[Rfam]
RNA sequence: CACCCGUGACGGUGAUGCUGCCUAGUGUUUCAUCACCUUCAUACCUCCCUGUUGGACUUGGCCGGACUUUUGUCCGGCCAUUUUU
Numbered sequence: 001c002a003c004c005c006g007u008g009a010c011g012g013u014g015a016u017g018c019u020g021c022c023u024a025g026u027g028u029u030u031c032a033u034c035a036c037c038u039u040c041a042u043a044c045c046u047c048c049c050u051g052u053u054g055g056a057c058u059u060g061g062c063c064g065g066a067c068u069u070u071u072g073u074c075c076g077g078c079c080a081u082u083u084u085u
Stems, first nucleotide, its partner, number of pairs: 008040002011037007060079008
Shown here is an 85-nucleotide sequence from Pseudooceanicola atlanticus, a member of the family "Singlet oxygen resistance RNA X". Its family is annotated with response to photooxidative stress in the Gene Ontology. For this family Rfam cites "Regulation of a polyamine transporter by the conserved 3' UTR-derived sRNA SorX confers resistance to singlet oxygen and organic hydroperoxides in Rhodobacter sphaeroides" (Peng et al., RNA Biol, 2016). Rfam classes the family as a small RNA. Rfam's curators write: SorX (RSs2461)like SorY is a singlet oxygen induced sRNA that counteracts oxidative stress by targeting mRNA for a transporter in Rhodobacter.